[Rfam]
RNA sequence: AGAGACAAGUAGAAGCACCCGCUUCUCACCUGAUUGACACAAGUGUUGUAGUUGACAGGUAUUUAUCCGACUUAUUUGUAAUGAAAUCGAGGAUGUGUGGGUGCAGUAUGUGUACCGACACUUUUUUGUUAUU
Numbered sequence: 001a002g003a004g005a006c007a008a009g010u011a012g013a014a015g016c017a018c019c020c021g022c023u024u025c026u027c028a029c030c031u032g033a034u035u036g037a038c039a040c041a042a043g044u045g046u047u048g049u050a051g052u053u054g055a056c057a058g059g060u061a062u063u064u065a066u067c068c069g070a071c072u073u074a075u076u077u078g079u080a081a082u083g084a085a086a087u088c089g090a091g092g093a094u095g096u097g098u099g100g101g102u103g104c105a106g107u108a109u110g111u112g113u114a115c116c117g118a119c120a121c122u123u124u125u126u127u128g129u130u131a132u133u
Base pairs, nucleotide, nucleotide: 011026012025013024014023015022016021028060029059030058036053037052038051039049040048096120097119098118100116101115102114103113104112105111
Dot-bracket structure: ..........((((((....)))))).(((.....(((((.......)).)))....)))...................................(((.((((((.....)))))).))).............
This 133-nucleotide RNA from Gracilibacillus dipsosauri belongs to the Rfam family "Ribosomal protein L20 leader". Taxonomically the source falls in Gracilibacillus (Bacteria, Bacilli, Caryophanales, Bacillaceae). On this family, see Zengel and Lindahl, Prog Nucleic Acid Res Mol Biol 1994: "Diverse mechanisms for regulating ribosomal protein synthesis in Escherichia coli". Gene Ontology term of the family: regulation of gene expression. This family is a putative r-protein leader autoregulatory structure found in B. subtilis and other low-GC Gram-positive bacteria.